[Rfam]
RNA sequence: CAAUUGGUCCUUUUCAGGACCACCAAAAUGAUUCCAAAAAGAGUUA
Numbered sequence: 001c002a003a004u005u006g007g008u009c010c011u012u013u014u015c016a017g018g019a020c021c022a023c024c025a026a027a028a029u030g031a032u033u034c035c036a037a038a039a040a041g042a043g044u045u046a
Base pairs, nucleotide, nucleotide: 006021007020008019009018010017011016

Background: Shown here is a 46-nucleotide RNA sequence from Aedes aegypti, a member of the family "Histone 3' UTR stem-loop". The base pairs follow the family's consensus structure, which is taken from published work. A search with the family's covariance model found it, with a score of 35 bits. Taxonomically the source falls in Stegomyia (Eukaryota, Protostomia, Allotriocarida, Dicondylia).